Rfam assigns this 79-nucleotide RNA from Rhizomicrobium palustre to the family "Glycine riboswitch aptamer". Lineage of the source: Bacteria > Pseudomonadati > Alphaproteobacteria > Micropepsales > Rhizomicrobium.
[Rfam]
RNA sequence: AUCUGAAGAGCGAUGCGGAAAGGCAUCCACCGAAGGGGUAGUCCGUGCGCGGACGAAACUCUCAGGUUCCAUGACAGGU
Numbered sequence: 001a002u003c004u005g006a007a008g009a010g011c012g013a014u015g016c017g018g019a020a021a022g023g024c025a026u027c028c029a030c031c032g033a034a035g036g037g038g039u040a041g042u043c044c045g046u047g048c049g050c051g052g053a054c055g056a057a058a059c060u061c062u063c064a065g066g067u068u069c070c071a072u073g074a075c076a077g078g079u
Stems, first nucleotide, its partner, number of pairs: 001079005012027004029067003032063002036061003